[Rfam]
Nucleotides: 080
Base pairs, nucleotide, nucleotide: 011070012069013068014067015066016065017064018063019062020061026057027056028055029054030053031052032051
Number, partner (000 for none) and nucleotide at each position: 001000u002000c003000g004000a005000g006000a007000g008000g009000c010000a011070g012069g013068g014067c015066u016065u017064a018063g019062u020061u021000c022000g023000c024000u025000g026057g027056u028055g029054a030053a031052c032051a033000g034000a035000g036000u037000u038000a039000u040000a041000a042000a043000u044000c045000u046000c047000c048000c049000u050000g051032u052031g053030u054029u055028c056027a057026c058000a059000g060000u061020g062019g063018c064017u065016a066015a067014g068013u069012u070011c071000c072000g073000c074000u075000g076000c077000u078000c079000u080000g

Rfam assigns this 80-nucleotide RNA from Acipenser ruthenus to the family "mir-27 microRNA precursor family". Rfam 15.1 lists 1,440 matches to the family in 645 species. On this family, see Yao et al., J Virol 2008: "MicroRNA profile of Marek's disease virus-transformed T-cell line MSB-1: predominance of virus-encoded microRNAs". NCBI's taxonomy places the organism under Eukaryota, Chordata, Gnathostomata, Chondrostei, Acipenser.